[Rfam]
RNA sequence: ACGACCCUGUUCUGUCCGAAGUCUGACGCACCGCGUCAGGUAUUAAUGUAGGCAGAGUGGGGUCUU
Numbered sequence: 001a002c003g004a005c006c007c008u009g010u011u012c013u014g015u016c017c018g019a020a021g022u023c024u025g026a027c028g029c030a031c032c033g034c035g036u037c038a039g040g041u042a043u044u045a046a047u048g049u050a051g052g053c054a055g056a057g058u059g060g061g062g063u064c065u066u
Base pairs, nucleotide, nucleotide: 001066003064004063005062006061007060008059009058010057011056012055013054016052017051021041022040023039024038025037026036027035028034029033
This 66-nucleotide RNA belongs to the Rfam family "DUF3800-VIII RNA".